RNA sequence: CUGGGUCAAAUUGACUCUAGUAGGGAGUCUCAAAUUGAAAGCGACUCCCUAAUGGAGUCAGAUUGACCCCGGG
Dot-bracket structure: ..........((((((((..(((((((((.............)))))))))..))))))))............
Numbered sequence: 001c002u003g004g005g006u007c008a009a010a011u012u013g014a015c016u017c018u019a020g021u022a023g024g025g026a027g028u029c030u031c032a033a034a035u036u037g038a039a040a041g042c043g044a045c046u047c048c049c050u051a052a053u054g055g056a057g058u059c060a061g062a063u064u065g066a067c068c069c070c071g072g073g
Stems, first nucleotide, its partner, number of pairs: 011061008021051009
Notes: A member of the RNA family "mir-929 microRNA precursor family" from Frankliniella occidentalis, 73 nucleotides long. Taxonomically the source falls in Frankliniella (Eukaryota, Pterygota, Eumetabola, Thripoidea).